The record is a 137-nucleotide RNA sequence from Esox lucius, which matches "Small nucleolar RNA SNORA29" in Rfam. The organism belongs to Esox, within Eukaryota. The match comes from Rfam's covariance-model search (58 bits). It is annotated as an H/ACA-box small nucleolar RNA. Gene Ontology terms of the family: RNA processing and nucleolus. The base pairs follow the family's consensus structure, which was predicted with PFOLD.
[Rfam]
RNA sequence: UUUCCCGUUUUAGUACCGUUCAUUCGUUCCACCCCAGAAUGAACGGCUAUGCUAAUGGGAGAGAGAGAAAAUUGUCAGAGUGAAGGAGGGUCUGGCCUCGUCCAUCCCUUCUAGUUGAACUGACAUGACAAAAUCUA
Numbered sequence: 001u002u003u004c005c006c007g008u009u010u011u012a013g014u015a016c017c018g019u020u021c022a023u024u025c026g027u028u029c030c031a032c033c034c035c036a037g038a039a040u041g042a043a044c045g046g047c048u049a050u051g052c053u054a055a056u057g058g059g060a061g062a063g064a065g066a067g068a069a070a071a072u073u074g075u076c077a078g079a080g081u082g083a084a085g086g087a088g089g090g091u092c093u094g095g096c097c098u099c100g101u102c103c104a105u106c107c108c109u110u111c112u113a114g115u116u117g118a119a120c121u122g123a124c125a126u127g128a129c130a131a132a133a134u135c136u137a
Base pairs, nucleotide, nucleotide: 004059005058006057007056016046017045018044019043074124075123076122077121087112088111089110090109